[Rfam]
RNA: Small nucleolar RNA snR66
Organism: Kazachstania africana
RNA sequence: UUUUUUAUUAAAAUGAUGAAAUAUCAAUGCAACAUAGAGUCAAGCUCUGAGCAUUCAUAAAAAAUAUGAUGCAUGGAAGAGACUUGCUUAUAUUUAUCUGAUUUAAAAAAA
Numbered sequence: 001u002u003u004u005u006u007a008u009u010a011a012a013a014u015g016a017u018g019a020a021a022u023a024u025c026a027a028u029g030c031a032a033c034a035u036a037g038a039g040u041c042a043a044g045c046u047c048u049g050a051g052c053a054u055u056c057a058u059a060a061a062a063a064a065u066a067u068g069a070u071g072c073a074u075g076g077a078a079g080a081g082a083c084u085u086g087c088u089u090a091u092a093u094u095u096a097u098c099u100g101a102u103u104u105a106a107a108a109a110a111a
Stems, first nucleotide, its partner, number of pairs: 001111006